About this RNA:
Rfam assigns this 49-nucleotide sequence from Mesorhizobium denitrificans to the family "Guanidine-II riboswitch aptamer (mini-ykkC)". The base pairs follow the family's consensus structure, which is taken from published work. Taxonomically the source falls in Mesorhizobium (Bacteria, Pseudomonadati, Alphaproteobacteria, Phyllobacteriaceae). On this family, see Weinberg et al., Nucleic Acids Res 2007: "Identification of 22 candidate structured RNAs in bacteria using the CMfinder comparative genomics pipeline".
[Rfam]
RNA sequence: GCGCAGGGACGGCCCUGCAUUCCUGAAUAUUUGCGACGGGACGACCCGC
Numbered sequence: 001g002c003g004c005a006g007g008g009a010c011g012g013c014c015c016u017g018c019a020u021u022c023c024u025g026a027a028u029a030u031u032u033g034c035g036a037c038g039g040g041a042c043g044a045c046c047c048g049c
Stems, first nucleotide, its partner, number of pairs: 001020001003018006037048004